[Rfam]
RNA sequence: UUCUUAUCCAGAGAAACCGAGGGACAGGCCCUAUGACGUUUCGGCAGCGGGUUCGCUUUUUGCGGACACUGUGCUAAUUCCUGCAAAUGCGCUUUUGCGUGUUUGGAAGAUGAGAA
Numbered sequence: 001u002u003c004u005u006a007u008c009c010a011g012a013g014a015a016a017c018c019g020a021g022g023g024a025c026a027g028g029c030c031c032u033a034u035g036a037c038g039u040u041u042c043g044g045c046a047g048c049g050g051g052u053u054c055g056c057u058u059u060u061u062g063c064g065g066a067c068a069c070u071g072u073g074c075u076a077a078u079u080c081c082u083g084c085a086a087a088u089g090c091g092c093u094u095u096u097g098c099g100u101g102u103u104u105g106g107a108a109g110a111u112g113a114g115a116a
Stems, first nucleotide, its partner, number of pairs: 001116008013042005021031003025083004043075004048071002051067004079108001084105008
RNA: SAM riboswitch aptamer (S box leader)